[Rfam]
RNA sequence: UGCACUUACUUCUGUAAAUCGCUCUGGAUAAGAGUGUCUGCUAAAUGUCUCAAA
Dot-bracket structure: ............((((...((((((.....))))))..))).)...........
RNA: UnaL2 LINE 3' element